[Rfam]
RNA: A. fumigatus sRNA Afu_309
Organism: Friedmanniomyces endolithicus
RNA sequence: CUCAUAUCACAGAUCUGUGCCCUCUUGUCCCGGCCUACCUCUGGGUAGUGACACGGUCCGACAACUGGGCAGUUCGACAGUCAUGGAAACCUCCCGAUCUCCGCAUCGCCUCCGGUGGAGUACGUCCAGUCGACAGAUCUGAGAAAGAGUUGGUGGGAGUUCGUCUGUCGCAUCUUGAGUUCCUUUGCGGAUUCGGUGCGGUGGGCGCUUUCGCUGGGCGCUAUAUUCCGAAUCGUUCUCCCAGGCCGUCGGUCGUUGAGGGGAGGGACAAACCAUAGCUUGCCUACAUUC
Numbered sequence: 001c002u003c004a005u006a007u008c009a010c011a012g013a014u015c016u017g018u019g020c021c022c023u024c025u026u027g028u029c030c031c032g033g034c035c036u037a038c039c040u041c042u043g044g045g046u047a048g049u050g051a052c053a054c055g056g057u058c059c060g061a062c063a064a065c066u067g068g069g070c071a072g073u074u075c076g077a078c079a080g081u082c083a084u085g086g087a088a089a090c091c092u093c094c095c096g097a098u099c100u101c102c103g104c105a106u107c108g109c110c111u112c113c114g115g116u117g118g119a120g121u122a123c124g125u126c127c128a129g130u131c132g133a134c135a136g137a138u139c140u141g142a143g144a145a146a147g148a149g150u151u152g153g154u155g156g157g158a159g160u161u162c163g164u165c166u167g168u169c170g171c172a173u174c175u176u177g178a179g180u181u182c183c184u185u186u187g188c189g190g191a192u193u194c195g196g197u198g199c200g201g202u203g204g205g206c207g208c209u210u211u212c213g214c215u216g217g218g219c220g221c222u223a224u225a226u227u228c229c230g231a232a233u234c235g236u237u238c239u240c241c242c243a244g245g246c247c248g249u250c251g252g253u254c255g256u257u258g259a260g261g262g263g264a265g266g267g268a269c270a271a272a273c274c275a276u277a278g279c280u281u282g283c284c285u286a287c288a289u290u291c
Stems, first nucleotide, its partner, number of pairs: 011140008019070004026063004030056003033052001034050001036047004078132001080130002090118002152212002158209003171198004177194006183187001217284003220279005233268002236265002240262003244254004